[Rfam]
RNA sequence: GGACUGGCUUUAGCUCAGCGGUUCCUUCGACAGCAUCCAUUUAAUCACGUGGUCUGGCGGCUUCCACCAGGCCAGUGGUUCGAGCCCCGCGGGCGCUCUCCAGUCCUUUU
Numbered sequence: 001g002g003a004c005u006g007g008c009u010u011u012a013g014c015u016c017a018g019c020g021g022u023u024c025c026u027u028c029g030a031c032a033g034c035a036u037c038c039a040u041u042u043a044a045u046c047a048c049g050u051g052g053u054c055u056g057g058c059g060g061c062u063u064c065c066a067c068c069a070g071g072c073c074a075g076u077g078g079u080u081c082g083a084g085c086c087c088c089g090c091g092g093g094c095g096c097u098c099u100c101c102a103g104u105c106c107u108u109u110u
Stems, first nucleotide, its partner, number of pairs: 002105006013094004018090004026084005
Background:
Rfam assigns this 110-nucleotide RNA from Octodon degus to the family "Vault RNA". The base pairs follow the family's consensus structure, which is taken from published work. For this family Rfam cites "Evolution of Vault RNAs" (Stadler et al., Mol Biol Evol, 2009). NCBI's taxonomy places the organism under Eukaryota, Metazoa, Bilateria, Amniota, Octodon. It is annotated as a non-coding RNA gene.